[Rfam]
RNA: Eukaryotic large subunit ribosomal RNA, nucleotides 441 to 809
Nucleotides: 369
Stems, first nucleotide, its partner, number of pairs: 001351008011342002017048001020047001022045007052334007354369004
Number, partner (000 for none) and nucleotide at each position: 001351c002350a003349g004348u005347u006346g007345g008344u009000a010000g011342c012341c013000a014000a015000g016000c017048u018000u019000u020047g021000a022045u023044a024043a025042a026041g027040a028039u029000g030000g031000g032000g033000u034000a035000a036000c037000u038000u039028g040027u041026c042025u043024u044023u045022a046000a047020c048017g049000a050000g051000g052334u053333c054332a055331a056330c057329a058328u059000c060000g061000g062000u063000u064000g065000c066000u067000a068000u069000u070000u071000a072000g073000c074000c075000g076000c077000c078000u079000g080000a081000g082000a083000g084000g085000a086000a087000u088000u089000u090000u091000g092000u093000a094000g095000g096000u097000u098000a099000g100000c101000g102000g103000a104000g105000u106000a107000a108000g109000g110000u111000a112000g113000a114000a115000u116000g117000u118000g119000u120000a121000g122000g123000g124000a125000u126000u127000u128000a129000u130000c131000u132000c133000u134000a135000u136000u137000c138000a139000u140000u141000u142000g143000u144000u145000a146000u147000a148000g149000a150000c151000u152000c153000u154000a155000u156000g157000a158000a159000u160000c161000u162000a163000c164000u165000g166000u167000a168000a169000u170000u171000a172000u173000g174000c175000c176000u177000u178000g179000a180000g181000g182000c183000g184000g185000u186000g187000g188000c189000g190000a191000c192000c193000g194000a195000g196000g197000u198000a199000c200000g201000c202000a203000g204000u205000g206000u207000u208000u209000g210000c211000c212000u213000u214000u215000g216000g217000c218000a219000a220000u221000g222000g223000a224000g225000a226000a227000a228000u229000u230000u231000a232000g233000g234000a235000a236000g237000g238000u239000a240000u241000g242000g243000u244000u245000u246000u247000u248000u249000u250000g251000g252000u253000u254000u255000u256000u257000a258000u259000a260000g261000a262000c263000a264000g265000c266000u267000u268000g269000c270000u271000g272000a273000c274000u275000a276000u277000g278000a279000u280000g281000g282000c283000a284000a285000a286000a287000g288000a289000a290000u291000a292000u293000a294000u295000c296000u297000c298000a299000u300000c301000u302000u303000a304000a305000a306000u307000u308000u309000u310000u311000a312000c313000c314000c315000a316000g317000a318000a319000a320000c321000a322000c323000u324000u325000g326000g327000g328058a329057u330056g331055u332054u333053g334052g335000c336000g337000a338000a339000a340000a341012g342011g343000c344008a345007c346006c347005a348004a349003u350002u351001g352000a353000c354369c355368c356367g357366u358000c359000u360000u361000g362000a363000a364000a365000c366357a367356c368355g369354g